Shown here is a 233-nucleotide RNA from an Alphaproteobacteria bacterium, a member of the family "permuted transfer-messenger RNA". Taxonomically the source falls in Alphaproteobacteria (Bacteria, Pseudomonadati, Pseudomonadota). The base pairs follow the family's consensus structure, which is taken from published work.
RNA sequence: GGCGAUAAACCCUCACGUAAUAAGCGGACCGGACCCGGGGGCAGUGCCCGGCGGCUCCACCAGAUUUCUCCCGGGAUCAUUGCCCGGACUGUCUGGGGCCGACACAGGAUCGACGGACGUGUAAAGGUGAAGACUUUGCCCGCUUUGGCCCCGUUAGAAGCCUUUUACGCAAUAGUUGCCAAUGACAACUUUGCUCAGGACCAAGCUCUCAGGACCAAGCUCUUGCUGCGUAA
Numbered sequence: 001g002g003c004g005a006u007a008a009a010c011c012c013u014c015a016c017g018u019a020a021u022a023a024g025c026g027g028a029c030c031g032g033a034c035c036c037g038g039g040g041g042c043a044g045u046g047c048c049c050g051g052c053g054g055c056u057c058c059a060c061c062a063g064a065u066u067u068c069u070c071c072c073g074g075g076a077u078c079a080u081u082g083c084c085c086g087g088a089c090u091g092u093c094u095g096g097g098g099c100c101g102a103c104a105c106a107g108g109a110u111c112g113a114c115g116g117a118c119g120u121g122u123a124a125a126g127g128u129g130a131a132g133a134c135u136u137u138g139c140c141c142g143c144u145u146u147g148g149c150c151c152c153g154u155u156a157g158a159a160g161c162c163u164u165u166u167a168c169g170c171a172a173u174a175g176u177u178g179c180c181a182a183u184g185a186c187a188a189c190u191u192u193g194c195u196c197a198g199g200a201c202c203a204a205g206c207u208c209u210c211a212g213g214a215c216c217a218a219g220c221u222c223u224u225g226c227u228g229c230g231u232a233a
Stems, first nucleotide, its partner, number of pairs: 001140005013130004025119002029116003035051005052101007141153002